[Rfam]
RNA sequence: CGUUAAAUUCGGAAAAUCCGCACAUAUGUCGACACAUUGCUCUGGGUGCCUGUAAAGGUGGAGGAUGAGGACAUAUGGAGGCCUAAC
Numbered sequence: 001c002g003u004u005a006a007a008u009u010c011g012g013a014a015a016a017u018c019c020g021c022a023c024a025u026a027u028g029u030c031g032a033c034a035c036a037u038u039g040c041u042c043u044g045g046g047u048g049c050c051u052g053u054a055a056a057g058g059u060g061g062a063g064g065a066u067g068a069g070g071a072c073a074u075a076u077g078g079a080g081g082c083c084u085a086a087c
Stems, first nucleotide, its partner, number of pairs: 023077008035067004040063004048059004
RNA: t44 RNA
Organism: Acinetobacter rudis